Shown here is a 274-nucleotide RNA from Nannospalax galili, a member of the family "Mason-Pfizer monkey virus packaging signal". Rfam classes the family as a cis-regulatory element. Rfam describes the family as follows. This family represents a group of sequences that are related to the Mason-Pfizer monkey virus (MPMV) packaging signal. The packaging signal is located in the 5' UTR and is required for specific RNA encapsidation. Gene Ontology term of the family: viral genome packaging. It scores 163 bits against the family's covariance model. Pairs were carried over by alignment from the consensus structure, which was predicted with PFOLD.
RNA sequence: UGGCGCCCAGCGUGAGGGCUGGAUACGGAGGAUCCAGUGAGGGAAGAAGACGUCCGCAAGGAACUUUCCACAACAAUUUUCACUCUGGACUCGCCGUGGGAACCUGCCUCGGCUACAACCAGAAGUAAGUACAGAUGUCUGAUUAUGGGACAAGAAAUAAGCAGGCACGAACUUUAUGUUAGGCAAUUGAAGGAUGCCUUAAGGACGCGAGGAGUAAAGGUUAAAACAGAGGAUCUAUUGAGAUUCUUUGAAUUCAUUAAGGAAACCUGUCCUU
Numbered sequence: 001u002g003g004c005g006c007c008c009a010g011c012g013u014g015a016g017g018g019c020u021g022g023a024u025a026c027g028g029a030g031g032a033u034c035c036a037g038u039g040a041g042g043g044a045a046g047a048a049g050a051c052g053u054c055c056g057c058a059a060g061g062a063a064c065u066u067u068c069c070a071c072a073a074c075a076a077u078u079u080u081c082a083c084u085c086u087g088g089a090c091u092c093g094c095c096g097u098g099g100g101a102a103c104c105u106g107c108c109u110c111g112g113c114u115a116c117a118a119c120c121a122g123a124a125g126u127a128a129g130u131a132c133a134g135a136u137g138u139c140u141g142a143u144u145a146u147g148g149g150a151c152a153a154g155a156a157a158u159a160a161g162c163a164g165g166c167a168c169g170a171a172c173u174u175u176a177u178g179u180u181a182g183g184c185a186a187u188u189g190a191a192g193g194a195u196g197c198c199u200u201a202a203g204g205a206c207g208c209g210a211g212g213a214g215u216a217a218a219g220g221u222u223a224a225a226a227c228a229g230a231g232g233a234u235c236u237a238u239u240g241a242g243a244u245u246c247u248u249u250g251a252a253u254u255c256a257u258u259a260a261g262g263a264a265a266c267c268u269g270u271c272c273u274u
Stems, first nucleotide, its partner, number of pairs: 006031002012026003038047001082126003085122002091117001095111002098108002134151001138149004158201003161197003208250008218236005259274005